A member of the RNA family "glmS glucosamine-6-phosphate activated ribozyme aptamer" from Ammonifex degensii, 163 nucleotides long. The family's RNA type in Rfam is riboswitch. The source organism's lineage runs through Bacteria, Bacillati, Clostridia, Thermoanaerobacterales and Ammonifex degensii. It scores 120 bits against the family's covariance model.
[Rfam]
RNA sequence: CAUAGACUUUAAGCGCCAGGACCGGCCUUGGCUUAAACAAAAGGCCGGUUGACGAGGUGGAGGUUUAUCGAGCUUUCGGCGGAUGCCUCCCGGCUGGCCACGGCCGUUAGCGGUGUUACAAAACCGGCAGGCAACUGCCGGGACAAAAGCACCAGGUGGCAAA
Numbered sequence: 001c002a003u004a005g006a007c008u009u010u011a012a013g014c015g016c017c018a019g020g021a022c023c024g025g026c027c028u029u030g031g032c033u034u035a036a037a038c039a040a041a042a043g044g045c046c047g048g049u050u051g052a053c054g055a056g057g058u059g060g061a062g063g064u065u066u067a068u069c070g071a072g073c074u075u076u077c078g079g080c081g082g083a084u085g086c087c088u089c090c091c092g093g094c095u096g097g098c099c100a101c102g103g104c105c106g107u108u109a110g111c112g113g114u115g116u117u118a119c120a121a122a123a124c125c126g127g128c129a130g131g132c133a134a135c136u137g138c139c140g141g142g143a144c145a146a147a148a149g150c151a152c153c154a155g156g157u158g159g160c161a162a163a
Base pairs, nucleotide, nucleotide: 020050021049022048023047024046025045026044027043029041059090060089061088062087063086068079069078070077071076091106092105093104094103095102096101111155112153113152114151115150116149124141125140126139127138128137129136130135